[Rfam]
RNA sequence: GCGAGGGGUAGGAGCUCGGAACCGCGGCCCGCAAGACGGGCACUGAAGGGGCGCAGGGGGCUAGUGGUGCGACCGGCUACCGCUCCG
Numbered sequence: 001g002c003g004a005g006g007g008g009u010a011g012g013a014g015c016u017c018g019g020a021a022c023c024g025c026g027g028c029c030c031g032c033a034a035g036a037c038g039g040g041c042a043c044u045g046a047a048g049g050g051g052c053g054c055a056g057g058g059g060g061c062u063a064g065u066g067g068u069g070c071g072a073c074c075g076g077c078u079a080c081c082g083c084u085c086c087g
Base pairs, nucleotide, nucleotide: 003085004084005083007081008080009079010078011077013062014061015060022056024054025053027052028051029050030049038074039073040070041069042068043067044066
Rfam assigns this 87-nucleotide RNA to the family "c-di-GMP-II-GAG riboswitch aptamer". The family is grouped with related families in Rfam's "c-di-GMP_II riboswitch clan". Its family is annotated with regulation of gene expression and cyclic-di-GMP binding in the Gene Ontology. The family's consensus secondary structure is taken from published work. On this family, see Weinberg et al., Proc Natl Acad Sci U S A 2017: "Bioinformatic analysis of riboswitch structures uncovers variant classes with altered ligand specificity".